[Rfam]
RNA: FMN riboswitch aptamer (RFN element)
Organism: Alkalithermobacter paradoxus
RNA sequence: AAUAUCCUUCAGGGCAGGGUGAAAUUCCCUACCGGCGGUAUAGCCCGCGAGCUACUAAUGUGUAGCAGACUUGGUGUAAUUCCAAGGCCGACAGUAUAGUCUGGAUGAAAGAAGGAGUAA
Numbered sequence: 001a002a003u004a005u006c007c008u009u010c011a012g013g014g015c016a017g018g019g020u021g022a023a024a025u026u027c028c029c030u031a032c033c034g035g036c037g038g039u040a041u042a043g044c045c046c047g048c049g050a051g052c053u054a055c056u057a058a059u060g061u062g063u064a065g066c067a068g069a070c071u072u073g074g075u076g077u078a079a080u081u082c083c084a085a086g087g088c089c090g091a092c093a094g095u096a097u098a099g100u101c102u103g104g105a106u107g108a109a110a111g112a113a114g115g116a117g118u119a120a
Base pairs, nucleotide, nucleotide: 005116006115007114008113009112010111017029018028019027031100032099033090034089035048036047037046038045043088044087051066052065053064070086071085072084073083074082092103093102094101